Annotation:
Actino-pnp RNA: an 82-nucleotide RNA from Blastococcus sp. TF02A-26. It is annotated as a cis-regulatory element. Lineage of the source: Bacteria > Actinomycetota > Actinomycetes > Geodermatophilales > Blastococcus. Pairs were carried over by alignment from the consensus structure, which is taken from published work.
RNA sequence: UCCGGUCCUCGGUGGUGGCCUCCGGGCACGUCGUCCUCCUCGCGGGGGGCGGCAGUCCCGGGGGUUUCGAUCGAAGACCGGU
Number, nucleotide and partner (000 for none) at each position: 001u000002c081003c080004g079005g078006u077007c076008c000009u074010c073011g072012g071013u070014g000015g000016u000017g066018g065019c064020c063021u062022c061023c060024g059025g058026g057027c000028a056029c055030g000031u000032c000033g000034u000035c000036c000037u000038c000039c000040u000041c000042g000043c000044g000045g000046g000047g000048g000049g000050c000051g000052g000053c000054a000055g029056u028057c026058c025059c024060g023061g022062g021063g020064g019065u018066u017067u000068c000069g000070a013071u012072c011073g010074a009075a000076g007077a006078c005079c004080g003081g002082u000